[Rfam]
RNA: mir-205 microRNA precursor family
RNA sequence: GCAUUCUGUCCUUCAUUCCACCGGAGUCUGUCUUGAGCCAAUCAGAUUUCAGUGGCGUGAAGAAUAAGAGGCA
Dot-bracket structure: ..........((((((..(((.((((.(((............))).)))).)))..))))))...........